6A RNA: a 51-nucleotide RNA. The sequence is in the family's curated seed alignment. By type it is a small RNA.
RNA sequence: AGAAGAACUCGUAGAGCGCGAGUUCCGGGGAAAAAAGAAAGCUCACUGAGA
Numbered sequence: 001a002g003a004a005g006a007a008c009u010c011g012u013a014g015a016g017c018g019c020g021a022g023u024u025c026c027g028g029g030g031a032a033a034a035a036a037g038a039a040a041g042c043u044c045a046c047u048g049a050g051a
Stems, first nucleotide, its partner, number of pairs: 006024006014044004
Dot-bracket structure: .....((((((..[[[[.))))))................]]]].......